[Rfam]
RNA: Small nucleolar RNA SNORA47
Organism: Clupea harengus
RNA sequence: AGGAGGAUUGAGAAAGUUUGUCAGCCAGAUUAUUGCUGCCACAACUGGUUAUUCCCUCCAAGAGCAAUGGCAAACACUGUUUGGACUGUUCUCUGUGUUCAGGCUGUAUGCAGUGUUUUGUCUACACAUG
Numbered sequence: 001a002g003g004a005g006g007a008u009u010g011a012g013a014a015a016g017u018u019u020g021u022c023a024g025c026c027a028g029a030u031u032a033u034u035g036c037u038g039c040c041a042c043a044a045c046u047g048g049u050u051a052u053u054c055c056c057u058c059c060a061a062g063a064g065c066a067a068u069g070g071c072a073a074a075c076a077c078u079g080u081u082u083g084g085a086c087u088g089u090u091c092u093c094u095g096u097g098u099u100c101a102g103g104c105u106g107u108a109u110g111c112a113g114u115g116u117u118u119u120g121u122c123u124a125c126a127c128a129u130g
Base pairs, nucleotide, nucleotide: 002059003058004057005056006055015046016045017044018043019041020040022038023037024036025035079122081120084118085117087115088114089113